[Rfam]
RNA sequence: CGCAGUGACGAGGGGCGCCCGCGUGCCGGGCUGAGACGAACCCUUAGAACCUGAUCCGGGUCAUGCCGGCGGAGGGACGUCACCGGAAGCGGCA
Numbered sequence: 001c002g003c004a005g006u007g008a009c010g011a012g013g014g015g016c017g018c019c020c021g022c023g024u025g026c027c028g029g030g031c032u033g034a035g036a037c038g039a040a041c042c043c044u045u046a047g048a049a050c051c052u053g054a055u056c057c058g059g060g061u062c063a064u065g066c067c068g069g070c071g072g073a074g075g076g077a078c079g080u081c082a083c084c085g086g087a088a089g090c091g092g093c094a
Stems, first nucleotide, its partner, number of pairs: 006082005011044004016038001017031005050075003056069004